Source information
Rfam assigns this 62-nucleotide RNA from Trypanosoma brucei to the family "Trypanosomatid snoRNA TB8Cs2H1". The base pairs follow the family's consensus structure, which was predicted with WAR. It is one of the family's seed sequences. Gene Ontology terms of the family: RNA processing and nucleolus. The family's RNA type in Rfam is H/ACA-box small nucleolar RNA.
RNA sequence: ACCUCCGCUUCGCUCGUGGCAUUCUUCCAGUGAGUGCGCUUACGAUGGAUGGUGGAGGAAGA
Numbered sequence: 001a002c003c004u005c006c007g008c009u010u011c012g013c014u015c016g017u018g019g020c021a022u023u024c025u026u027c028c029a030g031u032g033a034g035u036g037c038g039c040u041u042a043c044g045a046u047g048g049a050u051g052g053u054g055g056a057g058g059a060a061g062a
Stems, first nucleotide, its partner, number of pairs: 002058007014045006020036005